[Rfam]
RNA sequence: AUUCCUUCUCUUGUAUAUUCUCGAGAGAUGCGGCCUCAGAUGCUUCAA
Numbered sequence: 001a002u003u004c005c006u007u008c009u010c011u012u013g014u015a016u017a018u019u020c021u022c023g024a025g026a027g028a029u030g031c032g033g034c035c036u037c038a039g040a041u042g043c044u045u046c047a048a
Base pairs, nucleotide, nucleotide: 010025011024012023013022032044033043034042
Rfam assigns this 48-nucleotide sequence from Tacca leontopetaloides to the family "Plastid-ycf3 group II-D1 intron". Plastid rpl16 is a non-coding RNA (ncRNA) recognised in plastids. Rfam links the family to the GO term Group II intron splicing. For this family Rfam cites "Retrograde signaling in plants: A critical review focusing on the GUN pathway and beyond" (Richter et al., Plant Commun, 2023).